Description: This 129-nucleotide RNA from Xenopus laevis belongs to the Rfam family "Small nucleolar RNA SNORA40". A search with the family's covariance model found it, with a score of 67 bits. The snoRNA ACA 40 belongs to the H/ACA family of snoRNAs and guides the pseudouridylation of 28S rRNA subunit at position U4565. Lineage of the source: Eukaryota > Craniata > Sarcopterygii > Pipidae > Xenopus.

RNA sequence: AGCACUUCUUAAUCUUUACUUGGCCUACAAUGGGUACAAAGUUAAAAUAAGUGCUUAUAUCAAAACCUUUUCUUGCAACCCACAACUAAUUGGAUAGUAUGAGUUGUGUUACUUAUGGGAAGGGACAUU
Numbered sequence: 001a002g003c004a005c006u007u008c009u010u011a012a013u014c015u016u017u018a019c020u021u022g023g024c025c026u027a028c029a030a031u032g033g034g035u036a037c038a039a040a041g042u043u044a045a046a047a048u049a050a051g052u053g054c055u056u057a058u059a060u061c062a063a064a065a066c067c068u069u070u071u072c073u074u075g076c077a078a079c080c081c082a083c084a085a086c087u088a089a090u091u092g093g094a095u096a097g098u099a100u101g102a103g104u105u106g107u108g109u110u111a112c113u114u115a116u117g118g119g120a121a122g123g124g125a126c127a128u129u
Stems, first nucleotide, its partner, number of pairs: 001055007009047001014041003017036003024032001066124003071120005081108007089100002
Dot-bracket structure: (((((((.(....((((((....(.......).)))..))).....).)))))))..........(((..(((((.....(((((((.((........)).))))))).......))))).))).....